[Rfam]
RNA sequence: GCCAUGGGGGAUCGCCGUCCGUCAGCGCAGAUGCGCCCGCGGGCGCGAAAGGU
Numbered sequence: 001g002c003c004a005u006g007g008g009g010g011a012u013c014g015c016c017g018u019c020c021g022u023c024a025g026c027g028c029a030g031a032u033g034c035g036c037c038c039g040c041g042g043g044c045g046c047g048a049a050a051g052g053u
Stems, first nucleotide, its partner, number of pairs: 016045007025036004
RNA: ffh sRNA